Shown here is a 72-nucleotide RNA from Dactylosporangium vinaceum, a member of the family "tRNA".
RNA sequence: GGGCUUGUGGCGCAGUGGUAGCGCAUCGGUCUGGCAGACCGAGGGUCAGCGGUUCGAACCCGCUCAGGUCCA
Numbered sequence: 001g002g003g004c005u006u007g008u009g010g011c012g013c014a015g016u017g018g019u020a021g022c023g024c025a026u027c028g029g030u031c032u033g034g035c036a037g038a039c040c041g042a043g044g045g046u047c048a049g050c051g052g053u054u055c056g057a058a059c060c061c062g063c064u065c066a067g068g069u070c071c072a
Base pairs, nucleotide, nucleotide: 001071002070003069004068005067006066007065010024011023012022013021026042027041028040029039030038048064049063050062051061052060